Plastid-clpP 5UTR RNA: a 69-nucleotide RNA sequence from Capsicum baccatum. The base pairs follow the family's consensus structure, which was predicted with LocARNA.
RNA sequence: AAUUCUUUUUGUAGGAACAAAGAGAAGAAGAUUUAUUUUAUACUCGAUAAGUACCAAUACACAAUGGGG
Numbered sequence: 001a002a003u004u005c006u007u008u009u010u011g012u013a014g015g016a017a018c019a020a021a022g023a024g025a026a027g028a029a030g031a032u033u034u035a036u037u038u039u040a041u042a043c044u045c046g047a048u049a050a051g052u053a054c055c056a057a058u059a060c061a062c063a064a065u066g067g068g069g
Stems, first nucleotide, its partner, number of pairs: 003022002006019001008017003043068003051060003